[Rfam]
RNA sequence: AGAUGUUCCGGGGGGUGUCUCUGACGAGGCUGAGACGGUAAGUGCCGAACCCUUUGAACCUGAUCCGGGUCAUGCCGGCGAAGGAACAGGAGAUUAUGAGCGU
Numbered sequence: 001a002g003a004u005g006u007u008c009c010g011g012g013g014g015g016u017g018u019c020u021c022u023g024a025c026g027a028g029g030c031u032g033a034g035a036c037g038g039u040a041a042g043u044g045c046c047g048a049a050c051c052c053u054u055u056g057a058a059c060c061u062g063a064u065c066c067g068g069g070u071c072a073u074g075c076c077g078g079c080g081a082a083g084g085a086a087c088a089g090g091a092g093a094u095u096a097u098g099a100g101c102g103u
Base pairs, nucleotide, nucleotide: 006092007091008090009089011053012052013051014050016047017030018029019028020027021026037046038045039044059084060083061082065078066077067076068075
Dot-bracket structure: .....((((.((((.((((((....)))))......(((....))))..)))).....(((...((((......))))...)))....))))...........